[Rfam]
RNA sequence: AAGACCUCGCUGGGAGAAACCGGUUUCGAACCGGUGCCGAAGGAGCAACCGCCCCGGAAACUCUCAGGCAAAAGGACCAGCAAGGUGCC
Numbered sequence: 001a002a003g004a005c006c007u008c009g010c011u012g013g014g015a016g017a018a019a020c021c022g023g024u025u026u027c028g029a030a031c032c033g034g035u036g037c038c039g040a041a042g043g044a045g046c047a048a049c050c051g052c053c054c055c056g057g058a059a060a061c062u063c064u065c066a067g068g069c070a071a072a073a074g075g076a077c078c079a080g081c082a083a084g085g086u087g088c089c
Base pairs, nucleotide, nucleotide: 006084007083009081010080011079012078013077020034021033022032023031036069037068038067039065040064043063044062045061049057050056
Rfam assigns this 89-nucleotide RNA from Rhizobium subbaraonis to the family "Glycine riboswitch aptamer". The pairing is the family consensus, mapped onto this sequence.